RNA: mir-iab-4 microRNA precursor family
Organism: Chionoecetes opilio
RNA sequence: CUCCUGCUACGUAUACUGAAGGUAUACCGGACUAGCUCCCCCUCAGGAUACAUUCAGUAUACGUCCAGGGG
Number, nucleotide and partner (000 for none) at each position: 001c000002u070003c069004c068005u067006g066007c000008u000009a064010c063011g062012u061013a060014u059015a058016c057017u056018g055019a054020a053021g000022g051023u050024a049025u048026a000027c047028c046029g000030g044031a043032c000033u000034a000035g000036c000037u000038c000039c000040c000041c000042c000043u031044c030045a000046g028047g027048a025049u024050a023051c022052a000053u020054u019055c018056a017057g016058u015059a014060u013061a012062c011063g010064u009065c000066c006067a005068g004069g003070g002071g000